mir-5928 microRNA precursor family: a 75-nucleotide RNA from Haemonchus placei.

[Rfam]
RNA sequence: AGCACAAACUUGAAGUAGAAUAGUUGAGUAUGGUCAACUGAUCCUAAUAAUCUACUCUACUUGAAGUUUGUCCCC
Numbered sequence: 001a002g003c004a005c006a007a008a009c010u011u012g013a014a015g016u017a018g019a020a021u022a023g024u025u026g027a028g029u030a031u032g033g034u035c036a037a038c039u040g041a042u043c044c045u046a047a048u049a050a051u052c053u054a055c056u057c058u059a060c061u062u063g064a065a066g067u068u069u070g071u072c073c074c075c
Stems, first nucleotide, its partner, number of pairs: 002073001004071006011064001013062007021054003025050001027048001029046002032043004
Rfam links the family to the GO terms RISC complex and miRNA-mediated post-transcriptional gene silencing.